[Rfam]
RNA: Alphaproteobacteria transfer-messenger RNA
Organism: Novosphingobium endophyticum
RNA sequence: UCACUUCACAUUCACGAUUGAUCGCCUAUAUGGGUCAGUGCCGGUUUUGGCCGGCUAUGACGAUAAACUGCGCCGUGUAAUAGGCACAGCGGACCCGGGGGCGGUACCCGGCGGCUCCACCAUCACCUUGUCCCGGAAGGGGCAACCCUGUUGUCGCAGGGGUGUUGAUGGGGCCGAACUAGGAUCGACGUGUGUUAAAAGACGGUGUUUUCGUCCGGGCUGAGUAACCCGUUAAAGGCUCAAAACUCAUAAGUGCCAACGACAACGAAGCACUUGCUCUCGCUGCGUAAUUCUAGGGGCUAACGCCCUGAAGUUACAAAGUUAGAACGCGGUUGGACCCACCGGGCAACAGAAGCGGAUUCC
Numbered sequence: 001u002c003a004c005u006u007c008a009c010a011u012u013c014a015c016g017a018u019u020g021a022u023c024g025c026c027u028a029u030a031u032g033g034g035u036c037a038g039u040g041c042c043g044g045u046u047u048u049g050g051c052c053g054g055c056u057a058u059g060a061c062g063a064u065a066a067a068c069u070g071c072g073c074c075g076u077g078u079a080a081u082a083g084g085c086a087c088a089g090c091g092g093a094c095c096c097g098g099g100g101g102c103g104g105u106a107c108c109c110g111g112c113g114g115c116u117c118c119a120c121c122a123u124c125a126c127c128u129u130g131u132c133c134c135g136g137a138a139g140g141g142g143c144a145a146c147c148c149u150g151u152u153g154u155c156g157c158a159g160g161g162g163u164g165u166u167g168a169u170g171g172g173g174c175c176g177a178a179c180u181a182g183g184a185u186c187g188a189c190g191u192g193u194g195u196u197a198a199a200a201g202a203c204g205g206u207g208u209u210u211u212c213g214u215c216c217g218g219g220c221u222g223a224g225u226a227a228c229c230c231g232u233u234a235a236a237g238g239c240u241c242a243a244a245a246c247u248c249a250u251a252a253g254u255g256c257c258a259a260c261g262a263c264a265a266c267g268a269a270g271c272a273c274u275u276g277c278u279c280u281c282g283c284u285g286c287g288u289a290a291u292u293c294u295a296g297g298g299g300c301u302a303a304c305g306c307c308c309u310g311a312a313g314u315u316a317c318a319a320a321g322u323u324a325g326a327a328c329g330c331g332g333u334u335g336g337a338c339c340c341a342c343c344g345g346g347c348a349a350c351a352g353a354a355g356c357g358g359a360u361u362c363c
Stems, first nucleotide, its partner, number of pairs: 040055005059215005070208007085194003089191003095111005112176007216231004221242003330344004335361002338358002